[Rfam]
RNA: mir-1 microRNA precursor family
Organism: Cotesia typhae
RNA sequence: AGCGCAGCUCCAUACUUCUUUACAUUCCAUACGUCGUAUCGCACUAUGGGAAGUAAGGAAGUACGGAACAGUCGC
Numbered sequence: 001a002g003c004g005c006a007g008c009u010c011c012a013u014a015c016u017u018c019u020u021u022a023c024a025u026u027c028c029a030u031a032c033g034u035c036g037u038a039u040c041g042c043a044c045u046a047u048g049g050g051a052a053g054u055a056a057g058g059a060a061g062u063a064c065g066g067a068a069c070a071g072u073c074g075c
Stems, first nucleotide, its partner, number of pairs: 007069001009067003013063011025051001027049005